[Rfam]
RNA: c-di-AMP riboswitch aptamer (ydaO/yuaA leader)
Organism: Micromonospora globbae
RNA sequence: CCAGCGGUCCCGCCCAAUCGCCCGCGGGCGAGCCGGGGAACCAGGUAAAUGGGGUGAAUCCGCGCGAGCGGUAGGGCCACUUCCGUCCCGAACCCGGCAGCUUACCCGGUCGGCGGCCGACGGAAGGGAA
Dot-bracket structure: ..........((((...(((........)))((((((....((......))(((.....((((....))))..(((..........)))...))).........)))))).))))...............